Streptomyces sRNA 4677: a 231-nucleotide RNA sequence from Streptomyces kanasensis. From the family's description: Located in the intergenic region between anti-sigma factor SCO4677 gene and a putative regulatory protein gene SCO4676. scr4677 expression requires the SCO4677 activity and scr4677 sRNA itself seem to affect the levels of the SCO4676-associated transcripts.
RNA sequence: CGCACGAUGCAAAAGAUCAAAGAACGUCUGUGAGGAACGGGAAAACCACCUACCCCACCCCACCCCACCGCCGCCGGUCACUCCCCCGGGUGACCUUGCCCAAUCGGGCUGGAUUUCGGGCGGGUUGGCGGGCAUAUGCUCGCGGCGACAACCACAGACAGACGUCGGCCCCCGGCCGGGACGGCAAUCCCGAUCGAGGGCCUGACCAUCAAGGAAGUACGGAGCUUCCCG
Numbered sequence: 001c002g003c004a005c006g007a008u009g010c011a012a013a014a015g016a017u018c019a020a021a022g023a024a025c026g027u028c029u030g031u032g033a034g035g036a037a038c039g040g041g042a043a044a045a046c047c048a049c050c051u052a053c054c055c056c057a058c059c060c061c062a063c064c065c066c067a068c069c070g071c072c073g074c075c076g077g078u079c080a081c082u083c084c085c086c087c088g089g090g091u092g093a094c095c096u097u098g099c100c101c102a103a104u105c106g107g108g109c110u111g112g113a114u115u116u117c118g119g120g121c122g123g124g125u126u127g128g129c130g131g132g133c134a135u136a137u138g139c140u141c142g143c144g145g146c147g148a149c150a151a152c153c154a155c156a157g158a159c160a161g162a163c164g165u166c167g168g169c170c171c172c173c174g175g176c177c178g179g180g181a182c183g184g185c186a187a188u189c190c191c192g193a194u195c196g197a198g199g200g201c202c203u204g205a206c207c208a209u210c211a212a213g214g215a216a217g218u219a220c221g222g223a224g225c226u227u228c229c230c231g
Base pairs, nucleotide, nucleotide: 006210007209008208009207015065078093079092080091081090082089083088108146109145110142111141112140167202168201169200170199171198173196174195178191179190180189181188213229214228215227216226217225
On this family, see Hindra et al., PLoS One 2014: "Complex intra-operonic dynamics mediated by a small RNA in Streptomyces coelicolor".
Rfam 15.1 lists 563 matches to the family in 285 species.
Rfam classes the family as a small RNA.
The pairing is the family consensus, mapped onto this sequence.